[Rfam]
RNA sequence: AAAGAUAUUUCGCUGAAUUCCUUUUAGGGAGCGGGGGAACCAAUCGUGAGGAUGAUCUUGUCUUCACAUGGGGUGAAUCUCGAAUGUUCGAGUAGGGUUAUUCUUUGAGCCCGAAUCCGUCAGCUAACCCCGUAAGCGUACAAAGCGAGGAGUC
Numbered sequence: 001a002a003a004g005a006u007a008u009u010u011c012g013c014u015g016a017a018u019u020c021c022u023u024u025u026a027g028g029g030a031g032c033g034g035g036g037g038a039a040c041c042a043a044u045c046g047u048g049a050g051g052a053u054g055a056u057c058u059u060g061u062c063u064u065c066a067c068a069u070g071g072g073g074u075g076a077a078u079c080u081c082g083a084a085u086g087u088u089c090g091a092g093u094a095g096g097g098u099u100a101u102u103c104u105u106u107g108a109g110c111c112c113g114a115a116u117c118c119g120u121c122a123g124c125u126a127a128c129c130c131c132g133u134a135a136g137c138g139u140a141c142a143a144a145g146c147g148a149g150g151a152g153u154c
Stems, first nucleotide, its partner, number of pairs: 011138004018030003031133006041070002071118003079092004095112004